[Rfam]
RNA sequence: CAUUCAGGGCAGGGGUUUCUUUCGGCCUCCAGCAGAAUAGACGGUUGUAGGCCGGCGGAAACUACUUGCUUUUGAUA
Numbered sequence: 001c002a003u004u005c006a007g008g009g010c011a012g013g014g015g016u017u018u019c020u021u022u023c024g025g026c027c028u029c030c031a032g033c034a035g036a037a038u039a040g041a042c043g044g045u046u047g048u049a050g051g052c053c054g055g056c057g058g059a060a061a062c063u064a065c066u067u068g069c070u071u072u073u074g075a076u077a
Base pairs, nucleotide, nucleotide: 006072007071008070010068011067012066013065014063015062016061017060018059019058020057022055023054024053025052026051027050028049030047031046032045
Description
The record is a 77-nucleotide sequence from Diabrotica virgifera, which matches "mir-2796 microRNA precursor family" in Rfam. Rfam links the family to the GO terms RISC complex and miRNA-mediated post-transcriptional gene silencing. The match comes from Rfam's covariance-model search (82 bits). NCBI's taxonomy places the organism under Eukaryota, Protostomia, Ecdysozoa, Diabroticites, Diabrotica virgifera.